bZIP non canonical Hac1/Xbp1 intron: a 68-nucleotide RNA from Ampelomyces quisqualis. Taxonomically the source falls in Ampelomyces (Eukaryota, Dikarya, Ascomycota, leotiomyceta). The literature on the family includes a 2011 paper in RNA Biol by Hooks and Griffiths-Jones, "Conserved RNA structures in the non-canonical Hac1/Xbp1 intron". It scores 48 bits against the family's covariance model. It is annotated as a small RNA. From the family's description: bZIP intron RNA is a non-canonical intron that was first reported in HAC1 gene in yeast and XBP1 gene in Metazoa. Rfam 15.1 lists 1,325 matches to the family in 1,320 species.
Nucleotides: 068
Base pairs, nucleotide, nucleotide: 001068002067003066004065005064006063007062009060010059011058012057013056020038021037022036023035024034025033043055044054045053
Number, partner (000 for none) and nucleotide at each position: 001068c002067c003066u004065g005064a006063a007062u008000u009060c010059g011058a012057c013056u014000c015000g016000a017000c018000a019000c020038a021037a022036u023035a024034u025033c026000c027000u028000g029000c030000c031000g032000u033025g034024a035023u036022a037021u038020u039000g040000u041000g042000c043055g044054a045053c046000c047000u048000g049000c050000a051000g052000u053045g054044u055043c056013g057012g058011u059010c060009g061000a062007a063006u064005u065004c066003g067002g068001g